[Rfam]
RNA sequence: CCCUGUAUCGAAAGUGACUAUGGCAUGACUUGCCAUAGUCAUUAAUAGUUUAGGAAUAGUGAUCUUGAAAGCUUUUCCCUUGUUUGUUGGAAUACCCUGUUCCUGUCAAACCCUAUAUCUUUUAAAAA
Numbered sequence: 001c002c003c004u005g006u007a008u009c010g011a012a013a014g015u016g017a018c019u020a021u022g023g024c025a026u027g028a029c030u031u032g033c034c035a036u037a038g039u040c041a042u043u044a045a046u047a048g049u050u051u052a053g054g055a056a057u058a059g060u061g062a063u064c065u066u067g068a069a070a071g072c073u074u075u076u077c078c079c080u081u082g083u084u085u086g087u088u089g090g091a092a093u094a095c096c097c098u099g100u101u102c103c104u105g106u107c108a109a110a111c112c113c114u115a116u117a118u119c120u121u122u123u124a125a126a127a128a
Stems, first nucleotide, its partner, number of pairs: 002054004007049002013043008022034003065125007082111005087105001089103003
Dot-bracket structure: .((((.((....((((((((.(((.......))).))))))))....)).))))..........(((((((..........((((((.(((.........))).).))))).......)))))))...
A member of the RNA family "Small nucleolar RNA SNORA71" from Hucho hucho, 128 nucleotides long.
Rfam's curators write: The members of this family belong to the H/ACA class of snoRNAs which bind a number of proteins (including dyskerin, Gar1p and Nop10p) to form snoRNP complexes. This class of snoRNAs are thought to guide the sites of modification of uridines to pseudouridines by forming direct base pairing interactions with substrate RNAs. This family includes U71 (SNORA71), ACA39 (SNORA39) and ACA60 (SNORA60). U71 and ACA60 are predicted to guide the pseudouridylation of U406 and U1004 in 18S rRNA respectively.
Rfam classes the family as an H/ACA-box small nucleolar RNA.
The organism belongs to Hucho, within Eukaryota.
Pairs were carried over by alignment from the consensus structure, which was predicted with PFOLD.